[Rfam]
Rfam assigns this 114-nucleotide RNA from Jaculus jaculus to the family "Potassium channel RNA editing signal". The organism belongs to Jaculus, within Eukaryota. The match comes from Rfam's covariance-model search (109 bits). By type it is a cis-regulatory element.
RNA sequence: GUAGGGUAUGGUGACAUGUGUCCAACCACCCCAGGGGGUAAGAUUGUGGGCACACUCUGUGCCAUUGCAGGCGUCCUCACCAUUGCUCUGCCUGUACCUGUCAUUGUCUCUAAU
Numbered sequence: 001g002u003a004g005g006g007u008a009u010g011g012u013g014a015c016a017u018g019u020g021u022c023c024a025a026c027c028a029c030c031c032c033a034g035g036g037g038g039u040a041a042g043a044u045u046g047u048g049g050g051c052a053c054a055c056u057c058u059g060u061g062c063c064a065u066u067g068c069a070g071g072c073g074u075c076c077u078c079a080c081c082a083u084u085g086c087u088c089u090g091c092c093u094g095u096a097c098c099u100g101u102c103a104u105u106g107u108c109u110c111u112a113a114u
Stems, first nucleotide, its partner, number of pairs: 001114002004111002008107004013102004018097004037077002040074001049063003
Notes:
This family represents a group of sequences related to the human potassium channel Kv1.1 hairpin element which directs the efficient modification of an adenosine to inosine by an adenosine deaminase acting on RNA (ADAR). The ADAR modification causes an isoleucine/valine recoding event which lies in the ion-conducting pore of the potassium channel.